[Rfam]
RNA sequence: AUUUGAAUACAGGGGUGCUGGAUCCAAUCCGGCUGAGAUAAAAACUAGUGGUUUUUGACCCUCGAACCUGAUAUGGAUAAUGCCAGCGCAGGAAGUUGUAAUCUUUACGUG
Numbered sequence: 001a002u003u004u005g006a007a008u009a010c011a012g013g014g015g016u017g018c019u020g021g022a023u024c025c026a027a028u029c030c031g032g033c034u035g036a037g038a039u040a041a042a043a044a045c046u047a048g049u050g051g052u053u054u055u056u057g058a059c060c061c062u063c064g065a066a067c068c069u070g071a072u073a074u075g076g077a078u079a080a081u082g083c084c085a086g087c088g089c090a091g092g093a094a095g096u097u098g099u100a101a102u103c104u105u106u107a108c109g110u111g
Stems, first nucleotide, its partner, number of pairs: 006099001009096002011062004017033005040055004067092004074085003